[Rfam]
RNA sequence: GGGGUGAUAGCUCAGUUGGGAGUAGCGUACGACUGAAGUUGAACUUUGGCCAAUUCUUAAAUCGUAAGGUCGCCGGUUCAAUCCCGGCUCGCCCCA
Numbered sequence: 001g002g003g004g005u006g007a008u009a010g011c012u013c014a015g016u017u018g019g020g021a022g023u024a025g026c027g028u029a030c031g032a033c034u035g036a037a038g039u040u041g042a043a044c045u046u047u048g049g050c051c052a053a054u055u056c057u058u059a060a061a062u063c064g065u066a067a068g069g070u071c072g073c074c075g076g077u078u079c080a081a082u083c084c085c086g087g088c089u090c091g092c093c094c095c096a
Stems, first nucleotide, its partner, number of pairs: 001095007010026003028066005072088005

tRNA: a 96-nucleotide RNA sequence from Histoplasma mississippiense.
Its family is annotated with triplet codon-amino acid adaptor activity in the Gene Ontology.
NCBI's taxonomy places the organism under Eukaryota, saccharomyceta, Eurotiomycetes, Onygenales, Histoplasma.
Rfam classes the family as a transfer RNA.